[Rfam]
RNA sequence: CACAGAGUAGGUGGUUUGCGUUAAGUGUGUAUGGAUGGGAUGUUGCCAUACAACGAAGCGAAAGCGCGGUAAACCAUUGCAUCCGCUGUC
Numbered sequence: 001c002a003c004a005g006a007g008u009a010g011g012u013g014g015u016u017u018g019c020g021u022u023a024a025g026u027g028u029g030u031a032u033g034g035a036u037g038g039g040a041u042g043u044u045g046c047c048a049u050a051c052a053a054c055g056a057a058g059c060g061a062a063a064g065c066g067c068g069g070u071a072a073a074c075c076a077u078u079g080c081a082u083c084c085g086c087u088g089u090c
Stems, first nucleotide, its partner, number of pairs: 002089004010078009019068003025054002028052007038084005058065002
RNA: THF (Tetrahydrofolate) riboswitch aptamer